[Rfam]
Shown here is a 70-nucleotide RNA sequence from Rhodanobacter thiooxydans, a member of the family "Fluoride riboswitch aptamer (crcB RNA motif)".
It scores 47 bits against the family's covariance model.
Rfam links the family to the GO terms positive regulation of gene expression and response to fluoride.
RNA sequence: UCCAGCAUGGGAGAUGGCAUGCCUCCUCGCACGACCCAACCGCCGCAAGGCUAAUGAUGCCUACCAACGA
Number, nucleotide and partner (000 for none) at each position: 001u000002c000003c000004a000005g000006c000007a000008u000009g000010g026011g025012a024013g023014a000015u000016g061017g060018c059019a058020u057021g000022c000023c013024u012025c011026c010027u000028c000029g000030c000031a000032c000033g000034a000035c000036c000037c000038a000039a000040c000041c000042g051043c050044c049045g000046c000047a000048a000049g044050g043051c042052u000053a000054a000055u000056g000057a020058u019059g018060c017061c016062u000063a000064c000065c000066a000067a000068c000069g000070a000